[Rfam]
Annotation:
t44 RNA: an 86-nucleotide RNA sequence from Cellvibrio polysaccharolyticus.

RNA sequence: UACCGUUCAUUUUAAUGUCACACAUAUACCGACACAUGUAACCUGGGUGCCCUCGGGUUGGUUCAUGGGGUAUAUGGAGGCUUAAC
Numbered sequence: 001u002a003c004c005g006u007u008c009a010u011u012u013u014a015a016u017g018u019c020a021c022a023c024a025u026a027u028a029c030c031g032a033c034a035c036a037u038g039u040a041a042c043c044u045g046g047g048u049g050c051c052c053u054c055g056g057g058u059u060g061g062u063u064c065a066u067g068g069g070g071u072a073u074a075u076g077g078a079g080g081c082u083u084a085a086c
Stems, first nucleotide, its partner, number of pairs: 023076008035067004041062003049058003
By type it is a small RNA. Pairs were carried over by alignment from the consensus structure, which was predicted with LocARNA. This family consists of a number of bacterial RNA genes of between 135 and 170 bases in length. The t44 gene has been identified in several species of enteric bacteria but homologs have also been identified in Pseudomonas and Coxiella species. The t44 gene is found between the map and rpsB genes in all species in the full alignment apart from Shigella flexneri.